[Rfam]
The record is a 99-nucleotide RNA from Priestia megaterium, which matches "TPP riboswitch aptamer (THI element)" in Rfam.

RNA sequence: GAAGUCCACUAGGGGUGCCCACCGGCUGAGACAAGUUUUCUUGAUCCCUUUGAACCUGAUCUGGCUCAUACCAGCGUAGGAAAGUGGCAAUGUUCAGUU
Numbered sequence: 001g002a003a004g005u006c007c008a009c010u011a012g013g014g015g016u017g018c019c020c021a022c023c024g025g026c027u028g029a030g031a032c033a034a035g036u037u038u039u040c041u042u043g044a045u046c047c048c049u050u051u052g053a054a055c056c057u058g059a060u061c062u063g064g065c066u067c068a069u070a071c072c073a074g075c076g077u078a079g080g081a082a083a084g085u086g087g088c089a090a091u092g093u094u095c096a097g098u099u
Stems, first nucleotide, its partner, number of pairs: 006087005011049004016043001017026003033042003055080004061074004